[Rfam]
RNA: Bacillus-plasmid RNA
RNA sequence: UGAGUCAACGGUAAGCGGAACGAAGUGAGCAUUAAGGAGUUGACUCAUUCACGACA
Numbered sequence: 001u002g003a004g005u006c007a008a009c010g011g012u013a014a015g016c017g018g019a020a021c022g023a024a025g026u027g028a029g030c031a032u033u034a035a036g037g038a039g040u041u042g043a044c045u046c047a048u049u050c051a052c053g054a055c056a
Stems, first nucleotide, its partner, number of pairs: 001047009